[Rfam]
RNA sequence: ACUUUCCUUGUCUUGGGGUUGAGGACUGUUCAAUGAGCGUAUAGUGAGAGCAGGCCUGCUAACACCAUAUUCGACACGAUCGCAUCACCUGACUUCUUGAAGUCAGAUAAUGGUGCAAUUUUUGGAAAC
Dot-bracket structure: .....((((.....))))..(.((.((((((.....((.....))..))))))..)).)......................((((((..((((((....)))))).....)))))).............
Numbered sequence: 001a002c003u004u005u006c007c008u009u010g011u012c013u014u015g016g017g018g019u020u021g022a023g024g025a026c027u028g029u030u031c032a033a034u035g036a037g038c039g040u041a042u043a044g045u046g047a048g049a050g051c052a053g054g055c056c057u058g059c060u061a062a063c064a065c066c067a068u069a070u071u072c073g074a075c076a077c078g079a080u081c082g083c084a085u086c087a088c089c090u091g092a093c094u095u096c097u098u099g100a101a102g103u104c105a106g107a108u109a110a111u112g113g114u115g116c117a118a119u120u121u122u123u124g125g126a127a128a129c
Stems, first nucleotide, its partner, number of pairs: 006018004021059001023057002026053006037045002082116006090105006
About this RNA:
U4atac minor spliceosomal RNA: a 129-nucleotide RNA from Labeo rohita. Lineage of the source: Eukaryota > Euteleostomi > Cyprinidae > Labeonini > Labeo. The family is grouped with related families in Rfam's "U4 clan". A search with the family's covariance model found it, with a score of 92 bits. Gene Ontology terms of the family: mRNA 5'-splice site recognition, spliceosomal tri-snRNP complex assembly and pre-mRNA 5'-splice site binding.